[Rfam]
RNA: rpsL sRNA
RNA sequence: UUGGCGAUGUUUUUGGUUUGGAAUGUAGUGUUAGCUUUAGACACUAAACGCUGCCAUAAAUAACCUGUCAGUUAUUUCUCUCAAAAACAA
Numbered sequence: 001u002u003g004g005c006g007a008u009g010u011u012u013u014u015g016g017u018u019u020g021g022a023a024u025g026u027a028g029u030g031u032u033a034g035c036u037u038u039a040g041a042c043a044c045u046a047a048a049c050g051c052u053g054c055c056a057u058a059a060a061u062a063a064c065c066u067g068u069c070a071g072u073u074a075u076u077u078c079u080c081u082c083a084a085a086a087a088c089a090a
Stems, first nucleotide, its partner, number of pairs: 012085005020078006026046006050072004